Annotation
This 129-nucleotide sequence from Macaca mulatta belongs to the Rfam family "Small Cajal body specific RNA 4". It is annotated as a small Cajal body RNA. The organism belongs to Macaca, within Eukaryota. Rfam links the family to the GO terms nucleolus, RNA processing and Cajal body. Rfam 15.1 lists 634 matches to the family in 510 species. About the family: scaRNAs are a specific class of small nuclear RNAs which localise to the Cajal bodies and guide the modification of RNA polymerase II transcribed spliceosomal RNAs U1, U2, U4, U5 and U12. The family is grouped with related families in Rfam's "SCARNA4 clan". The sequence is in the family's curated seed alignment.

RNA sequence: ACUGGAGGACUAAGGAGGCCAGAUCUGAUAAGGCAAGAUUUUGUAAUACGUUGCUCCUAGAAAAAAGGGUUGGCAAGAGCAGCCCUCACUGGAGACUAUCACAGGGACUGACUGUUCAACCCGACACUC
Numbered sequence: 001a002c003u004g005g006a007g008g009a010c011u012a013a014g015g016a017g018g019c020c021a022g023a024u025c026u027g028a029u030a031a032g033g034c035a036a037g038a039u040u041u042u043g044u045a046a047u048a049c050g051u052u053g054c055u056c057c058u059a060g061a062a063a064a065a066a067g068g069g070u071u072g073g074c075a076a077g078a079g080c081a082g083c084c085c086u087c088a089c090u091g092g093a094g095a096c097u098a099u100c101a102c103a104g105g106g107a108c109u110g111a112c113u114g115u116u117c118a119a120c121c122c123g124a125c126a127c128u129c
Stems, first nucleotide, its partner, number of pairs: 002060002004057004009052001017044001019043001021041006067122004078113002080110003083106004090101003